A member of the RNA family "Mammalian CPEB3 ribozyme" from Crocodylus porosus, 77 nucleotides long. It scores 60 bits against the family's covariance model. The source organism's lineage runs through Eukaryota, Craniata, Vertebrata, Archosauria and Crocodylus.
RNA sequence: UCAAGUGCCCUAAUGGCCAUAGCAGAAGCGCUCCCGUCGUGGCCUUGUCAGAUCCUGACGAAUCUGUGAAUUCUGCU
Numbered sequence: 001u002c003a004a005g006u007g008c009c010c011u012a013a014u015g016g017c018c019a020u021a022g023c024a025g026a027a028g029c030g031c032u033c034c035c036g037u038c039g040u041g042g043c044c045u046u047g048u049c050a051g052a053u054c055c056u057g058a059c060g061a062a063u064c065u066g067u068g069a070a071u072u073c074u075g076c077u
Base pairs, nucleotide, nucleotide: 013045015044016043017042018041021077022076023075024074025073026072027071028040029039030038049066050065051064052063053062055060